[Rfam]
RNA: Gag/pol translational readthrough site
Organism: Carlito syrichta
RNA sequence: UAGGGGAGUCAGGGUUUGGAACCCCCCCCGAGCCCAGGGUAAUGUUGAAGGUGGAGGGGAA
Numbered sequence: 001u002a003g004g005g006g007a008g009u010c011a012g013g014g015u016u017u018g019g020a021a022c023c024c025c026c027c028c029c030g031a032g033c034c035c036a037g038g039g040u041a042a043u044g045u046u047g048a049a050g051g052u053g054g055a056g057g058g059g060a061a
Base pairs, nucleotide, nucleotide: 008040009039010038012035013034014033015032016030018029019028022059023058024057025056027054